RNA sequence: GAGACUCGCUUAUGGGGCAGGACUUGCUUCAGUGGGGCUUUGGUGAUCACUGAGUCUGCCUCUUAAAUGUGUCACU
Numbered sequence: 001g002a003g004a005c006u007c008g009c010u011u012a013u014g015g016g017g018c019a020g021g022a023c024u025u026g027c028u029u030c031a032g033u034g035g036g037g038c039u040u041u042g043g044u045g046a047u048c049a050c051u052g053a054g055u056c057u058g059c060c061u062c063u064u065a066a067a068u069g070u071g072u073c074a075c076u
Stems, first nucleotide, its partner, number of pairs: 001075001003073003007069001010066003014062006021056003029053007037044002